RNA: SmY spliceosomal RNA
RNA sequence: CAGCAUCUAGCAUUUCAUCGAGGCCUUCAAUAAGACCUUCAGAACAAUUUUUGGAGACCCUGUCCUAAUUUUUGAGGCAGGGAA
Numbered sequence: 001c002a003g004c005a006u007c008u009a010g011c012a013u014u015u016c017a018u019c020g021a022g023g024c025c026u027u028c029a030a031u032a033a034g035a036c037c038u039u040c041a042g043a044a045c046a047a048u049u050u051u052u053g054g055a056g057a058c059c060c061u062g063u064c065c066u067a068a069u070u071u072u073u074g075a076g077g078c079a080g081g082g083a084a
Stems, first nucleotide, its partner, number of pairs: 021038003025034003058082005064077003